[Rfam]
RNA: Glycine riboswitch aptamer
Organism: Mediterraneibacter torques
RNA sequence: AGAGAAAACUCAGGAGAGUCUCUUUAUCGGCUGUGGCGAGGCCGGUGAAAGAGCGCCGAAGGUGUAAGCGGUAUAUUCUGUUUUUAAGGCAGACGCCGCGAGUCUCUCAGGCAAAAGGAUGGAGGUAUAAAG
Numbered sequence: 001a002g003a004g005a006a007a008a009c010u011c012a013g014g015a016g017a018g019u020c021u022c023u024u025u026a027u028c029g030g031c032u033g034u035g036g037c038g039a040g041g042c043c044g045g046u047g048a049a050a051g052a053g054c055g056c057c058g059a060a061g062g063u064g065u066a067a068g069c070g071g072u073a074u075a076u077u078c079u080g081u082u083u084u085u086a087a088g089g090c091a092g093a094c095g096c097c098g099c100g101a102g103u104c105u106c107u108c109a110g111g112c113a114a115a116a117g118g119a120u121g122g123a124g125g126u127a128u129a130a131a132g
Stems, first nucleotide, its partner, number of pairs: 007126001009124003013120001020053006055112003058108002062106001064104001068099005
Dot-bracket structure: ......(.(((.(......((((((......................)))))).(((((..(.(...(((((......................)))))....).))).))).......).))).)......